[Rfam]
RNA sequence: AUGGGGUUGAUACGUCCCCCAUCUUAACUGAUAUGCCACAUAAAGAAUAAACCAAUCGGAUAGUUUUUAAUUAUCUGAGUGGCGUAGC
Numbered sequence: 001a002u003g004g005g006g007u008u009g010a011u012a013c014g015u016c017c018c019c020c021a022u023c024u025u026a027a028c029u030g031a032u033a034u035g036c037c038a039c040a041u042a043a044a045g046a047a048u049a050a051a052c053c054a055a056u057c058g059g060a061u062a063g064u065u066u067u068u069a070a071u072u073a074u075c076u077g078a079g080u081g082g083c084g085u086a087g088c
Base pairs, nucleotide, nucleotide: 001022002021003020004019005018006017056078057077058076059075060074061073062072063071